A member of the RNA family "mir-9223 microRNA precursor family" from Myotis davidii, 75 nucleotides long. Pairs were carried over by alignment from the consensus structure, which was predicted with RNAalifold.

RNA sequence: GGCGGUUCUCGGGUGACGCACCCCAGAAUCGAGCUCCUUCCUCUCUGGUUCCAGGUGCAUAACCCAAGAACCACA
Numbered sequence: 001g002g003c004g005g006u007u008c009u010c011g012g013g014u015g016a017c018g019c020a021c022c023c024c025a026g027a028a029u030c031g032a033g034c035u036c037c038u039u040c041c042u043c044u045c046u047g048g049u050u051c052c053a054g055g056u057g058c059a060u061a062a063c064c065c066a067a068g069a070a071c072c073a074c075a
Base pairs, nucleotide, nucleotide: 002074005071006070007069008068009067011065012064013063014062016060019057020056021055022054026051027050028049029048030047031046033044
The family has 9 seed sequences and 14,641 matches in Rfam 15.1.